[Rfam]
Nucleotides: 074
Stems, first nucleotide, its partner, number of pairs: 001040001003038005021033003047060005
Number, partner (000 for none) and nucleotide at each position: 001040a002000a003038g004037g005036g006035g007034u008000a009000c010000a011000c012000g013000a014000u015000u016000g017000a018000c019000u020000u021033a022032c023031c024000u025000c026000c027000a028000c029000g030000u031023g032022g033021u034007a035006c036005c037004c038003c039000c040001u041000g042000g043000g044000c045000a046000a047060c048059g049058u050057a051056u052000a053000c054000u055000u056051a057050u058049g059048c060047g061000g062000c063000a064000a065000a066000a067000a068000a069000g070000u071000c072000c073000a074000u